[Rfam]
RNA sequence: UAAAAACUUCAGGGCAGGGUGAAAGUCCCUACCGGUGGUAUAGCCCACGAGCCGCAAGGCAGAAUCGGUGUGAUUCCGAUGCCGACAGUAUAGUCUGGAUGGAAGAAGUAUGCA
Numbered sequence: 001u002a003a004a005a006a007c008u009u010c011a012g013g014g015c016a017g018g019g020u021g022a023a024a025g026u027c028c029c030u031a032c033c034g035g036u037g038g039u040a041u042a043g044c045c046c047a048c049g050a051g052c053c054g055c056a057a058g059g060c061a062g063a064a065u066c067g068g069u070g071u072g073a074u075u076c077c078g079a080u081g082c083c084g085a086c087a088g089u090a091u092a093g094u095c096u097g098g099a100u101g102g103a104a105g106a107a108g109u110a111u112g113c114a
Base pairs, nucleotide, nucleotide: 004111006109007108008107009106010105017029018028019027031094032093033084034083035048036047037046038045043082044081051060052059053058064080065079066078067077068076086097087096088095
A member of the RNA family "FMN riboswitch aptamer (RFN element)" from Butyrivibrio sp. M55, 114 nucleotides long. Pairs were carried over by alignment from the consensus structure, which is taken from published work. Rfam links the family to the GO term FMN binding. The organism belongs to Butyrivibrio, within Bacteria.